[Rfam]
RNA sequence: GGGGCACCACCUUUACAACGGAUCGUCCGGCACGUUCCUGCCGGUGAAGGAAGGUUCGA
Numbered sequence: 001g002g003g004g005c006a007c008c009a010c011c012u013u014u015a016c017a018a019c020g021g022a023u024c025g026u027c028c029g030g031c032a033c034g035u036u037c038c039u040g041c042c043g044g045u046g047a048a049g050g051a052a053g054g055u056u057c058g059a
Stems, first nucleotide, its partner, number of pairs: 010050006027044006

This 59-nucleotide sequence from Oryzihumus leptocrescens belongs to the Rfam family "msiK RNA". The source organism's lineage runs through Bacteria, Bacillati, Actinomycetes, Micrococcales and Oryzihumus. By type it is a cis-regulatory element.